[Rfam]
RNA sequence: AUAAAAAAAUCCUCGUAGGAUUUCCUACGAGGUGCCUAAUAUCAAAAACAAAUACCGAUUAGUGUUUGUUUUUGUUCAAGGCUAUGGGAGAGGAGAAACCGGAGGAAGAACUUAUGGGGAAACGUAAGCCUUCUCCGCGG
Numbered sequence: 001a002u003a004a005a006a007a008a009a010u011c012c013u014c015g016u017a018g019g020a021u022u023u024c025c026u027a028c029g030a031g032g033u034g035c036c037u038a039a040u041a042u043c044a045a046a047a048a049c050a051a052a053u054a055c056c057g058a059u060u061a062g063u064g065u066u067u068g069u070u071u072u073u074g075u076u077c078a079a080g081g082c083u084a085u086g087g088g089a090g091a092g093g094a095g096a097a098a099c100c101g102g103a104g105g106a107a108g109a110a111c112u113u114a115u116g117g118g119g120a121a122a123c124g125u126a127a128g129c130c131u132u133c134u135c136c137g138c139g140g
Stems, first nucleotide, its partner, number of pairs: 011032009033088001035086001037084001043074013100137004105133004111128004
Shown here is a 140-nucleotide RNA sequence from Anaerobacillus arseniciselenatis, a member of the family "ylbH leader". The organism belongs to Anaerobacillus, within Bacteria. On this family, see Barrick et al., Proc Natl Acad Sci U S A 2004: "New RNA motifs suggest an expanded scope for riboswitches in bacterial genetic control". Rfam classes the family as a cis-regulatory leader. Rfam's curators write: This family is a putative regulatory RNA structure that is found upstream of the ylbH gene in B. subtilis and related low GC Gram-positive bacteria.